[Rfam]
RNA sequence: CCCUAGCCCUGAUGGGAACGGCAUCCUUUUGUGGUGGGGUUCACCACAAAAGAUAUAGUGUCCAGCAGGAAAUAGC
Number, nucleotide and partner (000 for none) at each position: 001c000002c000003c000004u000005a000006g000007c000008c000009c068010u067011g066012a000013u064014g063015g000016g000017a000018a059019c058020g000021g000022c000023a054024u053025c052026c000027u000028u000029u049030u048031g047032u046033g045034g044035u043036g042037g000038g000039g000040u000041u000042c036043a035044c034045c033046a032047c031048a030049a029050a000051a000052g025053a024054u023055a000056u000057a000058g019059u018060g000061u000062c000063c014064a013065g000066c011067a010068g009069g000070a000071a000072a000073u000074a000075g000076c000
This 76-nucleotide RNA from Flavobacterium geliluteum belongs to the Rfam family "Flavo-1 RNA". Rfam classes the family as a small RNA. The match comes from Rfam's covariance-model search (69 bits). Pairs were carried over by alignment from the consensus structure, which is taken from published work.